[Rfam]
RNA sequence: GGGUUUGAAAGGAGAGCUCUGCUUCCUCAUACAUACUCAUCUUUUCUAUGGAUAAGUAUGAGGAAAUGGAGAUCUCCUUCCAUUCCA
Numbered sequence: 001g002g003g004u005u006u007g008a009a010a011g012g013a014g015a016g017c018u019c020u021g022c023u024u025c026c027u028c029a030u031a032c033a034u035a036c037u038c039a040u041c042u043u044u045u046c047u048a049u050g051g052a053u054a055a056g057u058a059u060g061a062g063g064a065a066a067u068g069g070a071g072a073u074c075u076c077c078u079u080c081c082a083u084u085c086c087a
Base pairs, nucleotide, nucleotide: 002086003085006082007081009079010078011077012076013075014074015073017071018070019069020068021067023065024064025063026062027061028060029059030058031057032056034054035053037051038050039049040048

Shown here is an 87-nucleotide RNA from Gallus gallus, a member of the family "mir-1684 microRNA precursor family". Its family is annotated with RISC complex and miRNA-mediated post-transcriptional gene silencing in the Gene Ontology. Pairs were carried over by alignment from the consensus structure, which was predicted with RNAalifold. The sequence is in the family's curated seed alignment.